[Rfam]
RNA sequence: AUGCCAUGAUGAGGGCACUCCCUUUGAUAUUCCUUGUAUCGUUCCCAUGCUUCAUAAAUGGUUUUCACUAGCUUUUUGACGGAAACCUUGGAUCAAAGCUCUUGCCU
Numbered sequence: 001a002u003g004c005c006a007u008g009a010u011g012a013g014g015g016c017a018c019u020c021c022c023u024u025u026g027a028u029a030u031u032c033c034u035u036g037u038a039u040c041g042u043u044c045c046c047a048u049g050c051u052u053c054a055u056a057a058a059u060g061g062u063u064u065u066c067a068c069u070a071g072c073u074u075u076u077u078g079a080c081g082g083a084a085a086c087c088u089u090g091g092a093u094c095a096a097a098g099c100u101c102u103u104g105c106c107u
Stems, first nucleotide, its partner, number of pairs: 001107001003105002006102001057075002060072001

Rfam assigns this 107-nucleotide RNA from Chenopodium quinoa to the family "Plant small nucleolar RNA R71". The match comes from Rfam's covariance-model search (62 bits). On this family, see Brown et al., Trends Plant Sci 2003: "Plant snoRNAs: functional evolution and new modes of gene expression".